U4 spliceosomal RNA: a 165-nucleotide RNA from Talaromyces marneffei. By type it is a spliceosomal small nuclear RNA. The family's consensus secondary structure is taken from published work. Rfam describes the family as follows. U4 small nuclear RNA (U4 snRNA) is a component of the major U2-dependent spliceosome. Lineage of the source: Eukaryota > saccharomyceta > leotiomyceta > Eurotiomycetes > Talaromyces marneffei.
RNA sequence: AUCCUAGUGCUCGGGCAGUUCGAUUACCAGUGAGGAUUUCAUCCGAGGUAUCGAUUUUGCUAGUUGAAAACUACCUAGUUUGACCACUUCAACCGGCCUGCGGGUCAGUUGGGAAUUUUUGAUCUCACUGAAUUUUCGCUCAGCUAGUACUUGUUACUACUAGUG
Numbered sequence: 001a002u003c004c005u006a007g008u009g010c011u012c013g014g015g016c017a018g019u020u021c022g023a024u025u026a027c028c029a030g031u032g033a034g035g036a037u038u039u040c041a042u043c044c045g046a047g048g049u050a051u052c053g054a055u056u057u058u059g060c061u062a063g064u065u066g067a068a069a070a071c072u073a074c075c076u077a078g079u080u081u082g083a084c085c086a087c088u089u090c091a092a093c094c095g096g097c098c099u100g101c102g103g104g105u106c107a108g109u110u111g112g113g114a115a116u117u118u119u120u121g122a123u124c125u126c127a128c129u130g131a132a133u134u135u136u137c138g139c140u141c142a143g144c145u146a147g148u149a150c151u152u153g154u155u156a157c158u159a160c161u162a163g164u165g
Stems, first nucleotide, its partner, number of pairs: 020054005026049003034044003088113006095106004126165004